A member of the RNA family "mir-46/mir-47/mir-281 microRNA precursor family" from Pristionchus pacificus, 93 nucleotides long. For this family Rfam cites "The small RNA profile during Drosophila melanogaster development" (Aravin et al., Dev Cell, 2003). It is one of the family's seed sequences. Pairs were carried over by alignment from the consensus structure, which was predicted with RNAalifold.
RNA sequence: CCACGCAGAGACCGAAGAGAGCCUUCUGUUGACAGUGCGGGCCGUUGGUGCUAAUGCUAUUGUCAUGGAGUCGCUCUCUUCAGGCUUGUGGUC
Numbered sequence: 001c002c003a004c005g006c007a008g009a010g011a012c013c014g015a016a017g018a019g020a021g022c023c024u025u026c027u028g029u030u031g032a033c034a035g036u037g038c039g040g041g042c043c044g045u046u047g048g049u050g051c052u053a054a055u056g057c058u059a060u061u062g063u064c065a066u067g068g069a070g071u072c073g074c075u076c077u078c079u080u081c082a083g084g085c086u087u088g089u090g091g092u093c
Stems, first nucleotide, its partner, number of pairs: 014081005020075003025069004031064003035060002